[Rfam]
RNA sequence: GCAUUGCAAAUAUUUCACAUCUAAAAGGGUUUAAUAUUGGAAAAUCUGAACAACAUGAGUGAGAACUCACUACCGUCUCCUCAUCGAAACUGAGGUCC
Dot-bracket structure: (.(((.......................((((....(((...........)))...)))).................................))).)
Background
Small nucleolar RNA SNORD116: a 98-nucleotide RNA sequence from Muntiacus reevesi. The family's consensus secondary structure was predicted with PFOLD. Lineage of the source: Eukaryota > Amniota > Mammalia > Theria > Muntiacus. A reference for the family is Cavaille et al. (2000), "Identification of brain-specific and imprinted small nucleolar RNA genes exhibiting an unusual genomic organization", Proc Natl Acad Sci U S A. The family has 48 seed sequences and 3,260 matches in Rfam 15.1. The family's RNA type in Rfam is C/D-box small nucleolar RNA.